[Rfam]
About this RNA: Rfam assigns this 74-nucleotide RNA to the family "tRNA". The sequence is in the family's curated seed alignment. From the family's description: Transfer RNA (tRNA) molecules are approximately 80 nucleotides in length.

RNA sequence: GGCCGGUUAGCUCAGUUGGUUAGAGCGUGGUGCUAAUAACGCCAAGGUCGCGGGUUCGAUCCCCGUACGGGCCA
Numbered sequence: 001g002g003c004c005g006g007u008u009a010g011c012u013c014a015g016u017u018g019g020u021u022a023g024a025g026c027g028u029g030g031u032g033c034u035a036a037u038a039a040c041g042c043c044a045a046g047g048u049c050g051c052g053g054g055u056u057c058g059a060u061c062c063c064c065g066u067a068c069g070g071g072c073c074a
Stems, first nucleotide, its partner, number of pairs: 001073004006068002010026004028044005050066005